[Rfam]
RNA sequence: CCAACAUGGAUACCCCGGGAGGUCACUCUCCCCCGGCUCUGUCCUAGUGGCGUAGGGGAGCAUAGGGCCCUGCCCUGUGAUGUACAGUCCCGUUCCACGACGUUGGAGAUGAAGCUGGGCCUCGAGUCUGCGCCUGCAUAUUCCUACGGUUUCUCAGAGUCCUCUGGACCAUGACUGAGGAGACAAACCAUGCAGGAAACAAUC
Numbered sequence: 001c002c003a004a005c006a007u008g009g010a011u012a013c014c015c016c017g018g019g020a021g022g023u024c025a026c027u028c029u030c031c032c033c034c035g036g037c038u039c040u041g042u043c044c045u046a047g048u049g050g051c052g053u054a055g056g057g058g059a060g061c062a063u064a065g066g067g068c069c070c071u072g073c074c075c076u077g078u079g080a081u082g083u084a085c086a087g088u089c090c091c092g093u094u095c096c097a098c099g100a101c102g103u104u105g106g107a108g109a110u111g112a113a114g115c116u117g118g119g120c121c122u123c124g125a126g127u128c129u130g131c132g133c134c135u136g137c138a139u140a141u142u143c144c145u146a147c148g149g150u151u152u153c154u155c156a157g158a159g160u161c162c163u164c165u166g167g168a169c170c171a172u173g174a175c176u177g178a179g180g181a182g183a184c185a186a187a188c189c190a191u192g193c194a195g196g197a198a199a200c201a202a203u204c
Stems, first nucleotide, its partner, number of pairs: 001106005007100001008044005014036002018029004047098004056091004060085001062083003065078001133196007150182006159169004
A member of the RNA family "Small nucleolar RNA SNORA73 family" from Microtus ochrogaster, 204 nucleotides long.
The family is grouped with related families in Rfam's "snR30-U17 clan".
A search with the family's covariance model found it, with a score of 194 bits.
Lineage of the source: Eukaryota > Opisthokonta > Eutheria > Arvicolinae > Microtus.
Rfam's curators write: U17 (SNORA73A and SNORA73B) also known as E1 belongs to the H/ACA class of small nucleolar RNAs (snoRNAs). Vertebrate U17 is intron-encoded and ranges in length from 200-230 nucleotides, longer than most snoRNAs. It is one of the most abundant snoRNAs in human cells and is essential for the cleavage of pre-rRNA within the 5' external transcribed spacer (ETS). This cleavage leads to the formation of 18S rRNA. Regions of the U17 RNA are complementary to rRNA and act as guides for RNA/RNA interactions, although these regions do not seem to be well conserved between organisms.
Rfam links the family to the GO terms nucleolus and RNA processing.
By type it is an H/ACA-box small nucleolar RNA.